[Rfam]
RNA sequence: UUUUUUAUGAUGAAAAAAAAAUAUCUGAUUCUAAGUUGAUGAUAUCUUAUAUCAUUUCACCAAGAUCUCUGAAAAA
Numbered sequence: 001u002u003u004u005u006u007a008u009g010a011u012g013a014a015a016a017a018a019a020a021a022u023a024u025c026u027g028a029u030u031c032u033a034a035g036u037u038g039a040u041g042a043u044a045u046c047u048u049a050u051a052u053c054a055u056u057u058c059a060c061c062a063a064g065a066u067c068u069c070u071g072a073a074a075a076a
Base pairs, nucleotide, nucleotide: 002076003075004074005073